[Rfam]
RNA sequence: UCUUUGUGAAAGACAAGGGUAGUGAGAUGAUUCAAUAAUACCAUCUUACUACUCUGUCUUUUGCAUAGAU
Numbered sequence: 001u002c003u004u005u006g007u008g009a010a011a012g013a014c015a016a017g018g019g020u021a022g023u024g025a026g027a028u029g030a031u032u033c034a035a036u037a038a039u040a041c042c043a044u045c046u047u048a049c050u051a052c053u054c055u056g057u058c059u060u061u062u063g064c065a066u067a068g069a070u
Stems, first nucleotide, its partner, number of pairs: 008062008017054003021050009
The family of this 70-nucleotide RNA sequence from Lottia gigantea is "mir-71 microRNA precursor family". Rfam 15.1 lists 372 matches to the family in 291 species.